[Rfam]
RNA sequence: UUUAAACCGUUGAAGAGAAUAGUAGCUUAGUAUAGGUUUUUAGAGAGUGGAUGGUUGGUGAAAAUCCAUAACGUAUAUUUUGUGAAUCCGCCUCUGAGGUGUUGUGAUGAGCAAUACGGCUAUGUGUCGUUAAAAUUAUAAGAGGGUUUAUUUAUAAACCAAUUAGGGUGGCAACGCGGAGUCUUUCGUCCCUACU
Numbered sequence: 001u002u003u004a005a006a007c008c009g010u011u012g013a014a015g016a017g018a019a020u021a022g023u024a025g026c027u028u029a030g031u032a033u034a035g036g037u038u039u040u041u042a043g044a045g046a047g048u049g050g051a052u053g054g055u056u057g058g059u060g061a062a063a064a065u066c067c068a069u070a071a072c073g074u075a076u077a078u079u080u081u082g083u084g085a086a087u088c089c090g091c092c093u094c095u096g097a098g099g100u101g102u103u104g105u106g107a108u109g110a111g112c113a114a115u116a117c118g119g120c121u122a123u124g125u126g127u128c129g130u131u132a133a134a135a136u137u138a139u140a141a142g143a144g145g146g147u148u149u150a151u152u153u154a155u156a157a158a159c160c161a162a163u164u165a166g167g168g169u170g171g172c173a174a175c176g177c178g179g180a181g182u183c184u185u186u187c188g189u190c191c192c193u194a195c196u
Base pairs, nucleotide, nucleotide: 007099008098015094016093017092025083026082029079030078036072037071038070047069048068049067050066051065052064102114103113104112105111117129118128119127145160146159147158148157149156150155165193166192167191168190176189177188178187179186180185
Notes
This 196-nucleotide sequence from Clostridium homopropionicum belongs to the Rfam family "T-box leader". Pairs were carried over by alignment from the consensus structure, which is taken from published work. Rfam classes the family as a cis-regulatory leader. About the family: Uncharged tRNA acts as the effector for transcription antitermination of genes in the T-box leader family. T-boxes are found upstream of many aminoacyl-tRNA synthetase genes and some amino acid biosynthetic genes usually in Gram-positive bacteria. The anticodon of a specific tRNA base pairs to a specifier sequence within the T-box motif, and the NCCA acceptor tail of the tRNA base pairs to a conserved bulge in the T-box antiterminator hairpin. The match comes from Rfam's covariance-model search (130 bits).